[Rfam]
RNA sequence: CAUGGACUUGGGUGCAAGCCCCGAGUGGCUCUUCCGGCCGCCGAUCCGCCGGACAACC
Numbered sequence: 001c002a003u004g005g006a007c008u009u010g011g012g013u014g015c016a017a018g019c020c021c022c023g024a025g026u027g028g029c030u031c032u033u034c035c036g037g038c039c040g041c042c043g044a045u046c047c048g049c050c051g052g053a054c055a056a057c058c
Stems, first nucleotide, its partner, number of pairs: 006026006013018001033053006
RNA: sul1 RNA